Overview
The family of this 95-nucleotide RNA sequence is "TPP riboswitch aptamer (THI element)". Its family is annotated with thiamine pyrophosphate binding in the Gene Ontology. The family's consensus secondary structure is taken from published work.
RNA sequence: GACCAUCGCUCGGGGCGCCCCUCUGUGGGGCUGAGACGGACCCGUGGAACCUGAUCCGGCUCGCACCGGCGGAGGGAAAGCGAUGUCUUCCGUGG
Numbered sequence: 001g002a003c004c005a006u007c008g009c010u011c012g013g014g015g016c017g018c019c020c021c022u023c024u025g026u027g028g029g030g031c032u033g034a035g036a037c038g039g040a041c042c043c044g045u046g047g048a049a050c051c052u053g054a055u056c057c058g059g060c061u062c063g064c065a066c067c068g069g070c071g072g073a074g075g076g077a078a079a080g081c082g083a084u085g086u087c088u089u090c091c092g093u094g095g
Stems, first nucleotide, its partner, number of pairs: 006083005011044004016038001017031005050075003056069004

A search with the family's covariance model found it, with a score of 74 bits.